[Rfam]
Nucleotides: 121
Base pairs, nucleotide, nucleotide: 016074017073018072019071021069022068023067024066025065027063028062029061030060031059032058033057034056036054037053039049040048041047042046076115077114078113079112080111081110082109083108084107085106
Number, partner (000 for none) and nucleotide at each position: 001000c002000a003000a004000a005000a006000a007000a008000a009000a010000a011000a012000a013000u014000u015000u016074u017073u018072u019071u020000u021069u022068u023067u024066u025065u026000u027063u028062u029061u030060u031059u032058u033057u034056u035000u036054u037053u038000u039049g040048u041047u042046u043000u044000u045000u046042a047041a048040a049039u050000u051000u052000u053037a054036a055000a056034a057033a058032a059031a060030a061029a062028a063027a064000c065025a066024a067023a068022a069021a070000a071019a072018a073017a074016a075000a076115a077114a078113a079112c080111c081110c082109c083108c084107c085106c086000c087000c088000c089000g090000g091000g092000c093000c094000c095000c096000u097000u098000u099000c100000c101000c102000c103000c104000c105000c106085g107084g108083g109082g110081g111080g112079g113078u114077u115076u116000u117000u118000u119000a120000a121000a